[Rfam]
A member of the RNA family "t44 RNA" from Tamilnaduibacter salinus, 101 nucleotides long. The match comes from Rfam's covariance-model search (55 bits). Taxonomically the source falls in Tamilnaduibacter (Bacteria, Pseudomonadati, Pseudomonadota, Marinobacteraceae). From the family's description: This family consists of a number of bacterial RNA genes of between 135 and 170 bases in length. The t44 gene has been identified in several species of enteric bacteria but homologs have also been identified in Pseudomonas and Coxiella species. For this family Rfam cites "Transcriptome analysis of Escherichia coli using high-density oligonucleotide probe arrays" (Tjaden et al., Nucleic Acids Res, 2002). Rfam classes the family as a small RNA.
RNA sequence: GACCCCUGUCGGCAAAUACGCACACGCGUCGGCACGUUGCUCCAGGGUGCCUGUUUCCGUUUGGUGAUGGGUUGGAGUGAUCGGGCGCGUGGAGGACUAAC
Numbered sequence: 001g002a003c004c005c006c007u008g009u010c011g012g013c014a015a016a017u018a019c020g021c022a023c024a025c026g027c028g029u030c031g032g033c034a035c036g037u038u039g040c041u042c043c044a045g046g047g048u049g050c051c052u053g054u055u056u057c058c059g060u061u062u063g064g065u066g067a068u069g070g071g072u073u074g075g076a077g078u079g080a081u082c083g084g085g086c087g088c089g090u091g092g093a094g095g096a097c098u099a100a101c
Stems, first nucleotide, its partner, number of pairs: 023091008036081009049072007